[Rfam]
RNA sequence: CCCGCUGUUCCGUCAGCGGUAGCCUACCGACCGAUGCACCUUAAUGUUGUAUUAAGCGGUCGGGACAAAGUACACUUUCACAAGACAAGACAGAACCGUGAGGGGAAGUCAAGUAUGGUUAGUAUCAUACCGUAGAGUGG
Numbered sequence: 001c002c003c004g005c006u007g008u009u010c011c012g013u014c015a016g017c018g019g020u021a022g023c024c025u026a027c028c029g030a031c032c033g034a035u036g037c038a039c040c041u042u043a044a045u046g047u048u049g050u051a052u053u054a055a056g057c058g059g060u061c062g063g064g065a066c067a068a069a070g071u072a073c074a075c076u077u078u079c080a081c082a083a084g085a086c087a088a089g090a091c092a093g094a095a096c097c098g099u100g101a102g103g104g105g106a107a108g109u110c111a112a113g114u115a116u117g118g119u120u121a122g123u124a125u126c127a128u129a130c131c132g133u134a135g136a137g138u139g140g
Stems, first nucleotide, its partner, number of pairs: 002019006028062005033053006040046001076087001078085002089110003096103002115133005

Group II catalytic intron D1-D4-7: a 140-nucleotide RNA from Prevotella sp. TF12-30. On this family, see Bonen and Vogel, Trends Genet 2001: "The ins and outs of group II introns". Taxonomically the source falls in Prevotella (Bacteria, Bacteroidota, Bacteroidia, Bacteroidales). Rfam describes the family as follows. Group II introns are found in rRNA, tRNA and mRNA of organelles in fungi, plants and protists, and also in mRNA in bacteria. It scores 106 bits against the family's covariance model.